RNA sequence: ACACAGGGAAGGAGGUGGUCCGCGAAUUGAGUACUUCAUGGACAUGUGAGGUGGCUACGCGCUAGCUGCAUUGGCUCGGAAGAGCUGGCGUUACGCGCGCUGGCGAAUCCCCCGUAGCCACCCGGCCCCCGAGCUUUCGGUCUGUCCAACCGGAACUUCGCUCGGGGGCCGCUCCAU
Numbered sequence: 001a002c003a004c005a006g007g008g009a010a011g012g013a014g015g016u017g018g019u020c021c022g023c024g025a026a027u028u029g030a031g032u033a034c035u036u037c038a039u040g041g042a043c044a045u046g047u048g049a050g051g052u053g054g055c056u057a058c059g060c061g062c063u064a065g066c067u068g069c070a071u072u073g074g075c076u077c078g079g080a081a082g083a084g085c086u087g088g089c090g091u092u093a094c095g096c097g098c099g100c101u102g103g104c105g106a107a108u109c110c111c112c113c114g115u116a117g118c119c120a121c122c123c124g125g126c127c128c129c130c131g132a133g134c135u136u137u138c139g140g141u142c143u144g145u146c147c148a149a150c151c152g153g154a155a156c157u158u159c160g161c162u163c164g165g166g167g168g169c170c171g172c173u174c175c176a177u
Stems, first nucleotide, its partner, number of pairs: 015058005060105007068098002071095001073092003123171012136154006